[Rfam]
RNA sequence: UGAUGCUACAAACAACAUUCUCUUAUACUACACACCGAAAUAAAUGUGGACAAAAUUACUCUGCUUAUUUUCUGAAGCAUUG
Numbered sequence: 001u002g003a004u005g006c007u008a009c010a011a012a013c014a015a016c017a018u019u020c021u022c023u024u025a026u027a028c029u030a031c032a033c034a035c036c037g038a039a040a041u042a043a044a045u046g047u048g049g050a051c052a053a054a055a056u057u058a059c060u061c062u063g064c065u066u067a068u069u070u071u072c073u074g075a076a077g078c079a080u081u082g
Stems, first nucleotide, its partner, number of pairs: 003080005
Rfam assigns this 82-nucleotide RNA from Prunus persica to the family "Small nucleolar RNA R16". On this family, see Galardi et al., Mol Cell Biol 2002: "Purified box C/D snoRNPs are able to reproduce site-specific 2'-O-methylation of target RNA in vitro". Taxonomically the source falls in Prunus (Eukaryota, Pentapetalae, Rosales, Amygdaleae). The family's consensus secondary structure was predicted with PFOLD. Its family is annotated with RNA processing and nucleolus in the Gene Ontology.